[Rfam]
RNA sequence: GGGAGCGCAGGACCCUGGGCUGUGUCCCCUGCGCCCUGGGUCUGGGGCCUGCGCCACUGGACUCACGCUCCCGGGCCUCGGCUCCC
Numbered sequence: 001g002g003g004a005g006c007g008c009a010g011g012a013c014c015c016u017g018g019g020c021u022g023u024g025u026c027c028c029c030u031g032c033g034c035c036c037u038g039g040g041u042c043u044g045g046g047g048c049c050u051g052c053g054c055c056a057c058u059g060g061a062c063u064c065a066c067g068c069u070c071c072c073g074g075g076c077c078u079c080g081g082c083u084c085c086c
Base pairs, nucleotide, nucleotide: 001086002085003084004083005082008080009078010077011076014074015073017071018070019069021067022066023065024064025061026060028059031054032053033052034051038049040048041047042046
RNA: mir-8799 microRNA precursor family
Organism: Vulpes vulpes